[Rfam]
RNA sequence: CAGGCACCGGUUCACCCCAGCUCCAGCGGGGACCCGGCGGCC
Number, nucleotide and partner (000 for none) at each position: 001c000002a000003g042004g041005c040006a000007c037008c036009g035010g034011u000012u000013c000014a000015c031016c030017c029018c028019a000020g027021c026022u000023c000024c000025a000026g021027c020028g018029g017030g016031g015032a000033c000034c010035c009036g008037g007038c000039g000040g005041c004042c003
RNA: L31-Actinobacteria ribosomal protein leader
Organism: Actinokineospora spheciospongiae